A member of the RNA family "Small nucleolar RNA SNORA1" from Phrynocephalus forsythii, 138 nucleotides long. ACA1 is a member of the H/ACA class of snoRNA that guide the sites of modification of uridines to pseudouridines. Lineage of the source: Eukaryota > Lepidosauria > Bifurcata > Episquamata > Phrynocephalus.
RNA sequence: GGCCUUGUUGGGCUUAUAAAUGGGGGCAGACCAUUACUUUUGUGUCCCAGCUGAUCAACGAGGCAACAGUAAACAGCAGGCUGUGCUUCCAUCAUUGUAAGGCCAAUUACACUGAUGACAAUGAGGCCUGUAAUAAGA
Numbered sequence: 001g002g003c004c005u006u007g008u009u010g011g012g013c014u015u016a017u018a019a020a021u022g023g024g025g026g027c028a029g030a031c032c033a034u035u036a037c038u039u040u041u042g043u044g045u046c047c048c049a050g051c052u053g054a055u056c057a058a059c060g061a062g063g064c065a066a067c068a069g070u071a072a073a074c075a076g077c078a079g080g081c082u083g084u085g086c087u088u089c090c091a092u093c094a095u096u097g098u099a100a101g102g103c104c105a106a107u108u109a110c111a112c113u114g115a116u117g118a119c120a121a122u123g124a125g126g127c128c129u130g131u132a133a134u135a136a137g138a
Stems, first nucleotide, its partner, number of pairs: 002064003006060003023048006076131005090117005